Manganese Mn2+ riboswitch aptamer (yybP-ykoY): a 189-nucleotide sequence from Sinimarinibacterium arenosum.
The literature on the family includes a 2001 paper in Curr Biol by Argaman et al., "Novel small RNA-encoding genes in the intergenic regions of Escherichia coli".
A search with the family's covariance model found it, with a score of 75 bits.

RNA sequence: CCGCGCGUCAUUGGGGAGUAGCCGCCUCCGACGGGUUCGCAGAUCGACCCUGGAGAGGAGCCGACGUCAACAGACUUGGUCGCAAGACCAUGGUGUCGGCAGCAUCCGCCAGGCGAGACCUUUGACUUUUGUGUCCAUUGCCAGGCCGGCGAGGGGCGUAAAAGUCAUUGGAUCCGACUCGCCGGCCUC
Numbered sequence: 001c002c003g004c005g006c007g008u009c010a011u012u013g014g015g016g017a018g019u020a021g022c023c024g025c026c027u028c029c030g031a032c033g034g035g036u037u038c039g040c041a042g043a044u045c046g047a048c049c050c051u052g053g054a055g056a057g058g059a060g061c062c063g064a065c066g067u068c069a070a071c072a073g074a075c076u077u078g079g080u081c082g083c084a085a086g087a088c089c090a091u092g093g094u095g096u097c098g099g100c101a102g103c104a105u106c107c108g109c110c111a112g113g114c115g116a117g118a119c120c121u122u123u124g125a126c127u128u129u130u131g132u133g134u135c136c137a138u139u140g141c142c143a144g145g146c147c148g149g150c151g152a153g154g155g156g157c158g159u160a161a162a163a164g165u166c167a168u169u170g171g172a173u174c175c176g177a178c179u180c181g182c183c184g185g186c187c188u189c
Base pairs, nucleotide, nucleotide: 025058026057027056060100061099062098063097064096065095066094067093068092069091077090078089079088080087081086104188107185
The family has 29 seed sequences and 1,126 matches in Rfam 15.1.